[Rfam]
RNA sequence: GCCUCGUUGGCGCAGUAGGCAGCGCGUCAGUCUCAUAAUCUGAAGGUCAUGAGUUCAACCCUCACAUGGGGCA
Numbered sequence: 001g002c003c004u005c006g007u008u009g010g011c012g013c014a015g016u017a018g019g020c021a022g023c024g025c026g027u028c029a030g031u032c033u034c035a036u037a038a039u040c041u042g043a044a045g046g047u048c049a050u051g052a053g054u055u056c057a058a059c060c061c062u063c064a065c066a067u068g069g070g071g072c073a
Stems, first nucleotide, its partner, number of pairs: 001072007010025004027043004050064004
RNA: tRNA
Organism: Etheostoma spectabile